[Rfam]
RNA sequence: UGCCUUUCAGCCCGACCCCCCGGGGCUGAAACGCGAUGACCCCGGCCUCCUCCCCCCCUGGCCGGGGUCGUCCUCU
Numbered sequence: 001u002g003c004c005u006u007u008c009a010g011c012c013c014g015a016c017c018c019c020c021c022g023g024g025g026c027u028g029a030a031a032c033g034c035g036a037u038g039a040c041c042c043c044g045g046c047c048u049c050c051u052c053c054c055c056c057c058c059u060g061g062c063c064g065g066g067g068u069c070g071u072c073c074u075c076u
Base pairs, nucleotide, nucleotide: 002034003033005031006030007029008028009027010026011025012024013023035072036071037070038069039068040067041066042065043064044063045062046061047060
The record is a 76-nucleotide RNA sequence from Gordonia rhizosphera, which matches "6C RNA" in Rfam.
Rfam links the family to the GO term sporulation.
Taxonomically the source falls in Gordonia rhizosphera (Bacteria, Bacillati, Mycobacteriales, Gordoniaceae).
The base pairs follow the family's consensus structure, which is taken from published work.
By type it is a cis-regulatory element.
On this family, see Weinberg et al., Nucleic Acids Res 2007: "Identification of 22 candidate structured RNAs in bacteria using the CMfinder comparative genomics pipeline".